RNA sequence: GAAAGCAAAUGAUGCUACACAUAAAUCUUAUACUACACACUGAAUAUAUUCAUGUCGAAAACAAUUCUCAGUCUGUUCUGAUGCUUUC
Number, nucleotide and partner (000 for none) at each position: 001g000002a000003a086004a085005g084006c083007a082008a000009a000010u000011g000012a000013u000014g000015c000016u000017a000018c000019a000020c000021a000022u000023a000024a000025a000026u000027c000028u000029u000030a000031u000032a000033c000034u000035a000036c000037a000038c000039a000040c000041u000042g000043a000044a000045u000046a000047u000048a000049u000050u000051c000052a000053u000054g000055u000056c000057g000058a000059a000060a000061a000062c000063a000064a000065u000066u000067c000068u000069c000070a000071g000072u000073c000074u000075g000076u000077u000078c000079u000080g000081a000082u007083g006084c005085u004086u003087u000088c000
This 88-nucleotide RNA sequence from Artemisia annua belongs to the Rfam family "Small nucleolar RNA R16". The family's RNA type in Rfam is C/D-box small nucleolar RNA. The organism belongs to Artemisia, within Eukaryota. It scores 50 bits against the family's covariance model. The family's consensus secondary structure was predicted with PFOLD.